The family of this 181-nucleotide sequence from Lachnoclostridium sp. An181 is "6S / SsrS RNA". It scores 59 bits against the family's covariance model. Rfam classes the family as a non-coding RNA gene. Pairs were carried over by alignment from the consensus structure, which is taken from published work. On this family, see Wassarman and Storz, Cell 2000: "6S RNA regulates E. coli RNA polymerase activity". Lineage of the source: Bacteria > Bacillota > Clostridia > Lachnospirales > Lachnoclostridium. Rfam describes the family as follows. E. coli 6S RNA was the first non coding RNA to be sequenced, but its function was unknown until recently. It consists of 184 nucleotides that fold into an extended hairpin structure with a large single-stranded internal bulge. The 6S RNA specifically associates with RNA polymerase holoenzyme containing the sigma70 specificity factor. This interaction represses expression from a sigma70-dependent promoter during stationary phase. 6S RNA homologs have recently been identified in most bacterial genomes. Many Gram-positive species have two copies of 6S RNA. In Bacillus subtilis, both copies appear to interact with RNA polymerase holoenzyme containing the housekeeping sigma factor and be expressed during different stages of growth. In many proteobacteria, 6S RNA may be processed from a transcript encoding homologs of the E. coli YgfA protein which is a putative 5-formyltetrahydrofolate cycloligase activity.

RNA sequence: GAAAACCUGGGAUGUUCGAUAACUUCUGUAAUUUUGAACCUACAAUACUUUAAACGGGAUGCUCAUUAUCUCUGUAAUAUGUCAGGCCUCCGUUUGUAGUGGAAGACAGAAAAGCAGAUGCGGCUGCCCACCUAGCAGCGGCUAGGAGUCAAAAUACAGAAACCGGCAUUUUGGGGGAUUA
Number, nucleotide and partner (000 for none) at each position: 001g000002a179003a000004a000005a000006c175007c174008u173009g172010g171011g170012a169013u168014g167015u166016u000017c165018g164019a000020u000021a000022a000023c000024u000025u000026c000027u000028g000029u000030a000031a155032u154033u153034u152035u151036g150037a149038a000039c146040c145041u000042a000043c000044a000045a000046u000047a000048c000049u000050u000051u000052a000053a000054a000055c000056g129057g128058g127059a000060u000061g124062c123063u122064c000065a000066u000067u000068a000069u118070c117071u116072c000073u114074g000075u112076a000077a000078u000079a000080u000081g107082u106083c000084a000085g000086g000087c102088c101089u000090c099091c000092g000093u000094u000095u000096g000097u000098a000099g090100u000101g088102g087103a000104a000105g000106a082107c081108a000109g000110a000111a000112a075113a000114g073115c000116a071117g070118a069119u000120g000121c000122g063123g062124c061125u000126g000127c058128c057129c056130a000131c000132c000133u000134a000135g000136c000137a000138g000139c000140g000141g000142c000143u000144a000145g040146g039147a000148g000149u037150c036151a035152a034153a033154a032155u031156a000157c000158a000159g000160a000161a000162a000163c000164c018165g017166g015167c014168a013169u012170u011171u010172u009173g008174g007175g006176g000177g000178a000179u002180u000181a000